[Rfam]
RNA sequence: CUCUACAUUGAAUUCGGAAUGUAUUUAUUAUAAUAACCAAUGCUUUCGUCCUUGGUGUCAUAAUAAUUAACGAAUCGCAUGGCCUUGCGCCGGCGAUGGUUCAUUCAAAUUUCUGCCCUAUCAACUUUCGAUGGUAGGAUAGUGGCCUACCAUGGUGGCAACGGGUAACGGGGAAUUAGGGUUCGAUUCCGGAGAGGGAGCCUGAGAAACGGCUACCACAUCCAAGGAAGGCAGCAGGCGCGCAAAUUACCCAAUCCCGACACGGGGAGGUAGUGACAAUAAAUACUGAUACGGGCUCUUUUGGGUCUCGUAAUUGGAAUGAGUACAAUCUAAAUCCCUUAACGAGGAACAAUUGGAGGGCAAGUCUGGUGCCAGCAGCCGCGGUAAUUCCAGCUCCAAUAGCGUAUAUUAAAGUUGUUG
Numbered sequence: 001c002u003c004u005a006c007a008u009u010g011a012a013u014u015c016g017g018a019a020u021g022u023a024u025u026u027a028u029u030a031u032a033a034u035a036a037c038c039a040a041u042g043c044u045u046u047c048g049u050c051c052u053u054g055g056u057g058u059c060a061u062a063a064u065a066a067u068u069a070a071c072g073a074a075u076c077g078c079a080u081g082g083c084c085u086u087g088c089g090c091c092g093g094c095g096a097u098g099g100u101u102c103a104u105u106c107a108a109a110u111u112u113c114u115g116c117c118c119u120a121u122c123a124a125c126u127u128u129c130g131a132u133g134g135u136a137g138g139a140u141a142g143u144g145g146c147c148u149a150c151c152a153u154g155g156u157g158g159c160a161a162c163g164g165g166u167a168a169c170g171g172g173g174a175a176u177u178a179g180g181g182u183u184c185g186a187u188u189c190c191g192g193a194g195a196g197g198g199a200g201c202c203u204g205a206g207a208a209a210c211g212g213c214u215a216c217c218a219c220a221u222c223c224a225a226g227g228a229a230g231g232c233a234g235c236a237g238g239c240g241c242g243c244a245a246a247u248u249a250c251c252c253a254a255u256c257c258c259g260a261c262a263c264g265g266g267g268a269g270g271u272a273g274u275g276a277c278a279a280u281a282a283a284u285a286c287u288g289a290u291a292c293g294g295g296c297u298c299u300u301u302u303g304g305g306u307c308u309c310g311u312a313a314u315u316g317g318a319a320u321g322a323g324u325a326c327a328a329u330c331u332a333a334a335u336c337c338c339u340u341a342a343c344g345a346g347g348a349a350c351a352a353u354u355g356g357a358g359g360g361c362a363a364g365u366c367u368g369g370u371g372c373c374a375g376c377a378g379c380c381g382c383g384g385u386a387a388u389u390c391c392a393g394c395u396c397c398a399a400u401a402g403c404g405u406a407u408a409u410u411a412a413a414g415u416u417g418u419u420g
Stems, first nucleotide, its partner, number of pairs: 004107001009103006017045002025036004117165003124156003131153008169191004173184004196217002199214003219230001221228002247272001249271003255267005296346003300342001353399006366393004375382002
RNA: Microsporidia small subunit ribosomal RNA, nucleotides 1 to 420
Organism: Aspergillus steynii